[Rfam]
RNA: DUF3800-I RNA
RNA sequence: UAUAGAUACAGGCAGCAAUGCACUGUACACACUCGGGUACUGAUGUUUUCAUUAAGCGUAUUUUUAAGUACGCCAGUCCGAGUGGGCCACCCUAACGGGUGGUUUUUUUCUGAG
Dot-bracket structure: ......((((((((....))).)))))..((((((...(((((((....)))...((((((......)))))))))).))))))((((((((....))))))))..........